[Rfam]
RNA: Tombusvirus 3' UTR region IV
RNA sequence: GACCCAGACACGGUUGAUCUCCCCUUCGGGGGGGCUAUAGAGAUCACUGGAAGCACUACCGGACAACCGGAACAUUGCAGAAAUGCAGCCC
Number, nucleotide and partner (000 for none) at each position: 001g000002a000003c000004c000005c000006a000007g000008a000009c000010a000011c049012g048013g047014u046015u000016g045017a044018u043019c042020u041021c040022c000023c031024c030025u029026u000027c000028g000029g025030g024031g023032g091033g090034g089035c000036u000037a000038u000039a000040g021041a020042g019043a018044u017045c016046a014047c013048u012049g011050g000051a000052a000053g000054c000055a000056c000057u000058a000059c070060c069061g068062g067063a000064c000065a000066a000067c062068c061069g060070g059071a000072a000073c000074a000075u088076u087077g086078c085079a084080g000081a000082a000083a000084u079085g078086c077087a076088g075089c034090c033091c032